[Rfam]
RNA sequence: AAUUGCGUCGUGGGACUCUAUCUGUGACCUGUGUGUUUCUGAAUCACAUCACAGGCAGAGUUCUAGCUCCGCAU
Numbered sequence: 001a002a003u004u005g006c007g008u009c010g011u012g013g014g015a016c017u018c019u020a021u022c023u024g025u026g027a028c029c030u031g032u033g034u035g036u037u038u039c040u041g042a043a044u045c046a047c048a049u050c051a052c053a054g055g056c057a058g059a060g061u062u063c064u065a066g067c068u069c070c071g072c073a074u
Base pairs, nucleotide, nucleotide: 004071005070009066011065012064013063014062015061016060017059018058022054023053024052025051026050027049031047032046033045
Overview:
mir-11 microRNA precursor family: a 74-nucleotide RNA sequence from Dendroctonus ponderosae. Lineage of the source: Eukaryota > Protostomia > Coleoptera > Curculionidae > Dendroctonus. A reference for the family is Chen et al. (2010), "Next-generation small RNA sequencing for microRNAs profiling in the honey bee Apis mellifera", Insect Mol Biol.